[Rfam]
RNA sequence: GUUAUUUGAGGUGGUAAAUUUCGUCCGAACCACACGCCGCCGGUAUGACAGGGGAAACCCGAGAGAUGCAGGAGAAUCGGACGCCUGCCAAAUAAU
Numbered sequence: 001g002u003u004a005u006u007u008g009a010g011g012u013g014g015u016a017a018a019u020u021u022c023g024u025c026c027g028a029a030c031c032a033c034a035c036g037c038c039g040c041c042g043g044u045a046u047g048a049c050a051g052g053g054g055a056a057a058c059c060c061g062a063g064a065g066a067u068g069c070a071g072g073a074g075a076a077u078c079g080g081a082c083g084c085c086u087g088c089c090a091a092a093u094a095a096u
Stems, first nucleotide, its partner, number of pairs: 001096008011033005023082005035063001036044003068088005
Rfam assigns this 96-nucleotide RNA to the family "skipping-rope RNA". Rfam's curators put it in the seed alignment.